[Rfam]
RNA: Guanidine-I riboswitch aptamer
Organism: Pseudomaricurvus sp. HS19
RNA sequence: UAAAUAGAGUGCUAGGGUUCCGGUCAGGUAUCAGAAAGAUUAUCAGCCUGACGACUGGUCCGAGAGCAUUCGACCUCCCCUUUCAGUGAAAGGUAUGGGUUACACGGCGGGAUAAAAGCCCGGGAGAC
Numbered sequence: 001u002a003a004a005u006a007g008a009g010u011g012c013u014a015g016g017g018u019u020c021c022g023g024u025c026a027g028g029u030a031u032c033a034g035a036a037a038g039a040u041u042a043u044c045a046g047c048c049u050g051a052c053g054a055c056u057g058g059u060c061c062g063a064g065a066g067c068a069u070u071c072g073a074c075c076u077c078c079c080c081u082u083u084c085a086g087u088g089a090a091a092g093g094u095a096u097g098g099g100u101u102a103c104a105c106g107g108c109g110g111g112a113u114a115a116a117a118g119c120c121c122g123g124g125a126g127a128c
Base pairs, nucleotide, nucleotide: 007071008070009069010068011067012066015061016060020058021057022055023052024051025050026049027048028047072101073100074099075098076097103123105126109121110120111119